[Rfam]
Record summary: The family of this 580-nucleotide part of an RNA from Candidatus Methanomethylophilus sp. 1R26 is "Archaeal large subunit ribosomal RNA". The family's consensus secondary structure is taken from published work. Lineage of the source: Archaea > Thermoplasmatota > Thermoplasmata > Methanomethylophilaceae > Methanomethylophilus.
RNA sequence: AUUCCAUCUGAAAGCGAAGACCCCAUGGAGUUUCACUGCAACCUGUUGUUGUUGUAGGAGGCGAUAUGUGUAGAAUAGUCGGGACUCGUUACCCAGGACGGUGCGCUAGCAUCGCUCCGAGAGGACAGUGAAAUACCGACCUUAUCGCUUCUUACGACUCACCCUUUCGAGGGGACAGCUAUAGGCGGGCAGUUCGGGUGGGGCGCCACGCCCUCAAAAAGAUAACAAGGGCGCCCAAUGGUUAGCUCAGUAAGGUCAGAAAUCUUACGAAGAAUGUAAAGGUAAAAGCUAGCUUGACUCGGAACCAGACAAUAGGGUUCGGAGAUAGGAAACUAUGGCUUAGCGAACCAAUCAACCUCCCAAAUGGGGGUGAUUGAUAUCAGAAAAAUUACCCUGGGGAUAAUUGAGUUGUCACGGGCAAGAGUUCAUAUCGACCCCGUGGCUUGCUACUUCGCUGUCGGCUCUCCCUAUCCUGGUGGUGCAGCAGCUGCCAAGGGUGGGGUUGUUCGCCCAUUAAAAGGGAUCGUGAGCUGGGUUUAAAACGUCGCGAGACAGUUUUGUUGCUUUUGAUGGAAUUGUA
Numbered sequence: 001a002u003u004c005c006a007u008c009u010g011a012a013a014g015c016g017a018a019g020a021c022c023c024c025a026u027g028g029a030g031u032u033u034c035a036c037u038g039c040a041a042c043c044u045g046u047u048g049u050u051g052u053u054g055u056a057g058g059a060g061g062c063g064a065u066a067u068g069u070g071u072a073g074a075a076u077a078g079u080c081g082g083g084a085c086u087c088g089u090u091a092c093c094c095a096g097g098a099c100g101g102u103g104c105g106c107u108a109g110c111a112u113c114g115c116u117c118c119g120a121g122a123g124g125a126c127a128g129u130g131a132a133a134u135a136c137c138g139a140c141c142u143u144a145u146c147g148c149u150u151c152u153u154a155c156g157a158c159u160c161a162c163c164c165u166u167u168c169g170a171g172g173g174g175a176c177a178g179c180u181a182u183a184g185g186c187g188g189g190c191a192g193u194u195c196g197g198g199u200g201g202g203g204c205g206c207c208a209c210g211c212c213c214u215c216a217a218a219a220a221g222a223u224a225a226c227a228a229g230g231g232c233g234c235c236c237a238a239u240g241g242u243u244a245g246c247u248c249a250g251u252a253a254g255g256u257c258a259g260a261a262a263u264c265u266u267a268c269g270a271a272g273a274a275u276g277u278a279a280a281g282g283u284a285a286a287a288g289c290u291a292g293c294u295u296g297a298c299u300c301g302g303a304a305c306c307a308g309a310c311a312a313u314a315g316g317g318u319u320c321g322g323a324g325a326u327a328g329g330a331a332a333c334u335a336u337g338g339c340u341u342a343g344c345g346a347a348c349c350a351a352u353c354a355a356c357c358u359c360c361c362a363a364a365u366g367g368g369g370g371u372g373a374u375u376g377a378u379a380u381c382a383g384a385a386a387a388a389u390u391a392c393c394c395u396g397g398g399g400a401u402a403a404u405u406g407a408g409u410u411g412u413c414a415c416g417g418g419c420a421a422g423a424g425u426u427c428a429u430a431u432c433g434a435c436c437c438c439g440u441g442g443c444u445u446g447c448u449a450c451u452u453c454g455c456u457g458u459c460g461g462c463u464c465u466c467c468c469u470a471u472c473c474u475g476g477u478g479g480u481g482c483a484g485c486a487g488c489u490g491c492c493a494a495g496g497g498u499g500g501g502g503u504u505g506u507u508c509g510c511c512c513a514u515u516a517a518a519a520g521g522g523a524u525c526g527u528g529a530g531c532u533g534g535g536u537u538u539a540a541a542a543c544g545u546c547g548c549g550a551g552a553c554a555g556u557u558u559u560g561u562u563g564c565u566u567u568u569g570a571u572g573g574a575a576u577u578g579u580a
Stems, first nucleotide, its partner, number of pairs: 001576008010568003014564002022398004027394002029390005035193004042185005048179001051158016068141001078140005085123003100113005162173004196209001197207003210232005235338002241293006247273002250268006274283002298324003302320005326335001328333001349376005355371005407448003411445001412442007422432002459534001460532004464526001465523005472497002476491005500512004540558004544553003